[Rfam]
RNA sequence: ACUUGAGAAAUGUCCCCAGGACUGUCUGACCUGAGAAUGGAGGAAAAUGACGAUCAAUCUCAGGUCUGUCAGCCCAAGGAACAUAUCUUCAGA
Numbered sequence: 001a002c003u004u005g006a007g008a009a010a011u012g013u014c015c016c017c018a019g020g021a022c023u024g025u026c027u028g029a030c031c032u033g034a035g036a037a038u039g040g041a042g043g044a045a046a047a048u049g050a051c052g053a054u055c056a057a058u059c060u061c062a063g064g065u066c067u068g069u070c071a072g073c074c075c076a077a078g079g080a081a082c083a084u085a086u087c088u089u090c091a092g093a
Base pairs, nucleotide, nucleotide: 005090006089007088008086010084011083012082013081015079016078019075020074022072023071024070026068028066029065030064031063032062033061034060035059036058038056039055